[Rfam]
RNA sequence: GGUCUCUCAUAAAUAGUAAAAGGUCUGAUUACCCCAAGACUUGCACUUCCAUGACCUUUUCUCCCAGUAGUUUCUCACCAGUCACAGCACAGUAAUGAUGUGGCUGGCAGUGUCUGCUUGACAGCUAGUGAUGCAUUUAGUUCAUGUUAACCUAAAGCAUUGGAGACAUGACCAGGAUCAGCAUCCAACAGUCUUGCUUGAAGGAGUUUGGGGUUUUUGAUUGUUGUAAGUGGACAUGUGAUCUGAUUUCUCUGCUGAGAUG
Numbered sequence: 001g002g003u004c005u006c007u008c009a010u011a012a013a014u015a016g017u018a019a020a021a022g023g024u025c026u027g028a029u030u031a032c033c034c035c036a037a038g039a040c041u042u043g044c045a046c047u048u049c050c051a052u053g054a055c056c057u058u059u060u061c062u063c064c065c066a067g068u069a070g071u072u073u074c075u076c077a078c079c080a081g082u083c084a085c086a087g088c089a090c091a092g093u094a095a096u097g098a099u100g101u102g103g104c105u106g107g108c109a110g111u112g113u114c115u116g117c118u119u120g121a122c123a124g125c126u127a128g129u130g131a132u133g134c135a136u137u138u139a140g141u142u143c144a145u146g147u148u149a150a151c152c153u154a155a156a157g158c159a160u161u162g163g164a165g166a167c168a169u170g171a172c173c174a175g176g177a178u179c180a181g182c183a184u185c186c187a188a189c190a191g192u193c194u195u196g197c198u199u200g201a202a203g204g205a206g207u208u209u210g211g212g213g214u215u216u217u218u219g220a221u222u223g224u225u226g227u228a229a230g231u232g233g234a235c236a237u238g239u240g241a242u243c244u245g246a247u248u249u250c251u252c253u254g255c256u257g258a259g260a261u262g
Stems, first nucleotide, its partner, number of pairs: 002261003037244003041240001048220002051217001053215002061206004065120002067117004078107009128186001130185005143170006151162001
RNA: Small Cajal body specific RNA 6